A member of the RNA family "Phenylalanine leader peptide" from Leminorella richardii, 138 nucleotides long. Rfam 15.1 lists 379 matches to the family in 290 species. The source organism's lineage runs through Bacteria, Pseudomonadota, Enterobacterales, Budviciaceae and Leminorella. It scores 90 bits against the family's covariance model.
RNA sequence: UAUGCGUUUAGUGCCGUUUUUCUUCGCUUUCUUUUUUAGCCACCCCUGACAGGGAGGCGUUUCGUCCGUAGCUCCAAGGCGAGCAGAAAGAAAGCGAAGACGAACACGAAAGCCUCCCUAAAGGGGGGCUUUUUUAUU
Numbered sequence: 001u002a003u004g005c006g007u008u009u010a011g012u013g014c015c016g017u018u019u020u021u022c023u024u025c026g027c028u029u030u031c032u033u034u035u036u037u038a039g040c041c042a043c044c045c046c047u048g049a050c051a052g053g054g055a056g057g058c059g060u061u062u063c064g065u066c067c068g069u070a071g072c073u074c075c076a077a078g079g080c081g082a083g084c085a086g087a088a089a090g091a092a093a094g095c096g097a098a099g100a101c102g103a104a105c106a107c108g109a110a111a112g113c114c115u116c117c118c119u120a121a122a123g124g125g126g127g128g129c130u131u132u133u134u135u136a137u138u
Stems, first nucleotide, its partner, number of pairs: 016105004021100014036085001043054003056066004109132010